[Rfam]
The record is a 91-nucleotide sequence from Paenibacillus sedimenti, which matches "c-di-GMP-I-GGC riboswitch aptamer" in Rfam. Taxonomically the source falls in Paenibacillus (Bacteria, Bacillota, Caryophanales, Paenibacillaceae). Rfam 15.1 lists 1,298 matches to the family in 717 species.
RNA sequence: ACCGACAAAGGCAAAUCUAGCGAAAGCUAGAGACGCAAAGCUACAGGGCCUUCCUUAGUUUCCAUGCUAAGAUGGCAGCCAGAUACCGAAA
Number, nucleotide and partner (000 for none) at each position: 001a000002c000003c088004g087005a000006c000007a000008a000009a000010g000011g036012c035013a000014a000015a000016u031017c030018u029019a028020g027021c026022g000023a000024a000025a000026g021027c020028u019029a018030g017031a016032g000033a000034c078035g012036c011037a000038a000039a084040g000041c082042u081043a000044c000045a000046g080047g079048g076049c075050c074051u000052u000053c000054c000055u000056u000057a000058g000059u000060u000061u000062c000063c000064a000065u000066g000067c000068u000069a000070a000071g000072a000073u000074g050075g049076c048077a000078g034079c047080c046081a042082g041083a000084u039085a000086c000087c004088g003089a000090a000091a000